[Rfam]
RNA sequence: GAGCCGGCUAUAGCCCAGCGGUUACUUCGGCGCAUUACGAUAGAUUUGCUGUCGUCCCCGUUGGGGGUUCAAUCCGCGGGCACCCCUGGCUCACUU
Numbered sequence: 001g002a003g004c005c006g007g008c009u010a011u012a013g014c015c016c017a018g019c020g021g022u023u024a025c026u027u028c029g030g031c032g033c034a035u036u037a038c039g040a041u042a043g044a045u046u047u048g049c050u051g052u053c054g055u056c057c058c059c060g061u062u063g064g065g066g067g068u069u070c071a072a073u074c075c076g077c078g079g080g081c082a083c084c085c086c087u088g089g090c091u092c093a094c095u096u
Stems, first nucleotide, its partner, number of pairs: 002091006013081004018077004027072001029070002
RNA: Vault RNA
Organism: Ceuthmochares aereus